The family of this 148-nucleotide RNA sequence from Blastococcus sp. CT_GayMR20 is "c-di-AMP riboswitch aptamer (ydaO/yuaA leader)". Lineage of the source: Bacteria > Bacillati > Actinomycetota > Actinomycetes > Blastococcus. The match comes from Rfam's covariance-model search (48 bits).

RNA sequence: CCGGCCGUUGCACCUCCCCGUGUGCGGCCGGGCCGAGGACCCAGGGCAGUUCAGGGGUGCAGUGCCGGGAGCCGAACAGGCUCCGGGCGCCGGGCGAUCUCCCGCCCGAACCCGUCAGCCAACUCGGUAGGCGGCCGUGGAAGAAAGA
Numbered sequence: 001c002c003g004g005c006c007g008u009u010g011c012a013c014c015u016c017c018c019c020g021u022g023u024g025c026g027g028c029c030g031g032g033c034c035g036a037g038g039a040c041c042c043a044g045g046g047c048a049g050u051u052c053a054g055g056g057g058u059g060c061a062g063u064g065c066c067g068g069g070a071g072c073c074g075a076a077c078a079g080g081c082u083c084c085g086g087g088c089g090c091c092g093g094g095c096g097a098u099c100u101c102c103c104g105c106c107c108g109a110a111c112c113c114g115u116c117a118g119c120c121a122a123c124u125c126g127g128u129a130g131g132c133g134g135c136c137g138u139g140g141a142a143g144a145a146a147g148a
Base pairs, nucleotide, nucleotide: 001130005031006030007029032128033127034126035125036124037123042054055113056112057111063089064088065087066086092107093106094105095104